A member of the RNA family "SAM riboswitch aptamer (S box leader)" from Salipaludibacillus keqinensis, 107 nucleotides long.
RNA sequence: UUCUUAUCGUGAGAGAUGGAGGGAAAGGCCCGUUGAUAUCUCAGCAACCAGCCCGAUCAGGGUCAGGUGCUAAUUCCUGCAGGCAAUGCUGCUUGUAAAGAUAAGGA
Numbered sequence: 001u002u003c004u005u006a007u008c009g010u011g012a013g014a015g016a017u018g019g020a021g022g023g024a025a026a027g028g029c030c031c032g033u034u035g036a037u038a039u040c041u042c043a044g045c046a047a048c049c050a051g052c053c054c055g056a057u058c059a060g061g062g063u064c065a066g067g068u069g070c071u072a073a074u075u076c077c078u079g080c081a082g083g084c085a086a087u088g089c090u091g092c093u094u095g096u097a098a099a100g101a102u103a104a105g106g107a
Stems, first nucleotide, its partner, number of pairs: 001107008013042005021031003026078003043071004048067002051063003075099001080095006